[Rfam]
RNA sequence: GGCACAAAUUUGAUGUAGAGUAGAUUAGUAGGAUCAGCUGACCAUACUAAUUUACUCUAUUUCAAACUUGGAUCC
Numbered sequence: 001g002g003c004a005c006a007a008a009u010u011u012g013a014u015g016u017a018g019a020g021u022a023g024a025u026u027a028g029u030a031g032g033a034u035c036a037g038c039u040g041a042c043c044a045u046a047c048u049a050a051u052u053u054a055c056u057c058u059a060u061u062u063c064a065a066a067c068u069u070g071g072a073u074c075c
Stems, first nucleotide, its partner, number of pairs: 001074002005070003009066001011064003015060009025050006032043001034041002
This 75-nucleotide RNA sequence from Haemonchus placei belongs to the Rfam family "mir-5928 microRNA precursor family". A search with the family's covariance model found it, with a score of 64 bits. Gene Ontology terms of the family: miRNA-mediated post-transcriptional gene silencing and RISC complex.